The family of this 153-nucleotide RNA sequence is "RT-14 RNA".
It is annotated as a small RNA.
RNA sequence: CUCUAAUACAAUUUCUAGAUUACAUGUUUUACGGAAUAUAUACAAUGAAGGUAUUAGUAUUAAAGAGAUUUAUUCCUUCCUAAUUAAGGUAAAAACGAAUCAGCAAAUUGCAUAUUAGUAAACUUGAAACAAGGAGGAAUAUAUGCAAAUUGU
Numbered sequence: 001c002u003c004u005a006a007u008a009c010a011a012u013u014u015c016u017a018g019a020u021u022a023c024a025u026g027u028u029u030u031a032c033g034g035a036a037u038a039u040a041u042a043c044a045a046u047g048a049a050g051g052u053a054u055u056a057g058u059a060u061u062a063a064a065g066a067g068a069u070u071u072a073u074u075c076c077u078u079c080c081u082a083a084u085u086a087a088g089g090u091a092a093a094a095a096c097g098a099a100u101c102a103g104c105a106a107a108u109u110g111c112a113u114a115u116u117a118g119u120a121a122a123c124u125u126g127a128a129a130c131a132a133g134g135a136g137g138a139a140u141a142u143a144u145g146c147a148a149a150u151u152g153u
Stems, first nucleotide, its partner, number of pairs: 003057007014048002021042002024039006079089003103153002106151004110146006